Shown here is a 163-nucleotide RNA from Allopusillimonas soli, a member of the family "FMN riboswitch aptamer (RFN element)". The organism belongs to Allopusillimonas, within Bacteria.
RNA sequence: GCGCGUUCUCAGGGCGGGGUGCAAUUCCCCACCGGCGGUAGUGGCGUGCAAUGCGCCUAGCCCGCGAGCGCCUGUCCGCGCAUAUCAUCAUGCCUGACGGGGUCAGCAGACCUGGUGCGAUUCCAGGGCCGACGGUCAUAGUCCGGAUAAAGCGAGAGCGGGA
Numbered sequence: 001g002c003g004c005g006u007u008c009u010c011a012g013g014g015c016g017g018g019g020u021g022c023a024a025u026u027c028c029c030c031a032c033c034g035g036c037g038g039u040a041g042u043g044g045c046g047u048g049c050a051a052u053g054c055g056c057c058u059a060g061c062c063c064g065c066g067a068g069c070g071c072c073u074g075u076c077c078g079c080g081c082a083u084a085u086c087a088u089c090a091u092g093c094c095u096g097a098c099g100g101g102g103u104c105a106g107c108a109g110a111c112c113u114g115g116u117g118c119g120a121u122u123c124c125a126g127g128g129c130c131g132a133c134g135g136u137c138a139u140a141g142u143c144c145g146g147a148u149a150a151a152g153c154g155a156g157a158g159c160g161g162g163a
Base pairs, nucleotide, nucleotide: 004160005159006158007157008156009155010154017029018028019027031142032141033131034130035065036064037063038062060129061128068107069106111127112126113125114124115123133145134144135143